Annotation
Rfam assigns this 376-nucleotide sequence from Sphingobacterium sp. CZ-2 to the family "Bacterial RNase P class A". It scores 253 bits against the family's covariance model. By type it is a ribozyme. The base pairs follow the family's consensus structure, which is taken from published work.

RNA sequence: AAGCAAACUCGUUCUAUCGCUGGCCUUUAUCGAAUAAGGCGAGAGGAAAGUCCGGGCAACACAGAGCAACACGCUUCCUAACAGGAAGGAUGCCUUCGGGUAGACAGCAAGUGCCACAGAAAUGAUACCGCCAUGGCAACAUGGUAAGGGUGAAAACGUGAGGUAAGAGCUCACGGAUUUGUAUGGUAACAUACAUCUCGGUAAACCUCGUGUGUUGAAAAACCAAAUAGGUUGUGAGAGUCGAAAGCUGCUCGUUUUCUUCCUUCGGGACCUCACAAUGGGUAGGUUGAUGGAGGUUAUGCGCGAGCAUAAUCCUAGAUAAAUGAUAGAAAUCCCCUCGGGGAUACAGAACCCGGCUUAUAAAGUUUGCUUCUUU
Numbered sequence: 001a002a003g004c005a006a007a008c009u010c011g012u013u014c015u016a017u018c019g020c021u022g023g024c025c026u027u028u029a030u031c032g033a034a035u036a037a038g039g040c041g042a043g044a045g046g047a048a049a050g051u052c053c054g055g056g057c058a059a060c061a062c063a064g065a066g067c068a069a070c071a072c073g074c075u076u077c078c079u080a081a082c083a084g085g086a087a088g089g090a091u092g093c094c095u096u097c098g099g100g101u102a103g104a105c106a107g108c109a110a111g112u113g114c115c116a117c118a119g120a121a122a123u124g125a126u127a128c129c130g131c132c133a134u135g136g137c138a139a140c141a142u143g144g145u146a147a148g149g150g151u152g153a154a155a156a157c158g159u160g161a162g163g164u165a166a167g168a169g170c171u172c173a174c175g176g177a178u179u180u181g182u183a184u185g186g187u188a189a190c191a192u193a194c195a196u197c198u199c200g201g202u203a204a205a206c207c208u209c210g211u212g213u214g215u216u217g218a219a220a221a222a223c224c225a226a227a228u229a230g231g232u233u234g235u236g237a238g239a240g241u242c243g244a245a246a247g248c249u250g251c252u253c254g255u256u257u258u259c260u261u262c263c264u265u266c267g268g269g270a271c272c273u274c275a276c277a278a279u280g281g282g283u284a285g286g287u288u289g290a291u292g293g294a295g296g297u298u299a300u301g302c303g304c305g306a307g308c309a310u311a312a313u314c315c316u317a318g319a320u321a322a323a324u325g326a327u328a329g330a331a332a333u334c335c336c337c338u339c340g341g342g343g344a345u346a347c348a349g350a351a352c353c354c355g356g357c358u359u360a361u362a363a364a365g366u367u368u369g370c371u372u373c374u375u376u
Stems, first nucleotide, its partner, number of pairs: 001372009011361001012331007020043002023040005048359003052356005057217004064266003069213005074088005089105001091102003106208002111206002113202003128149002130145006157175006176197001180195006221288004231279006258270004295314008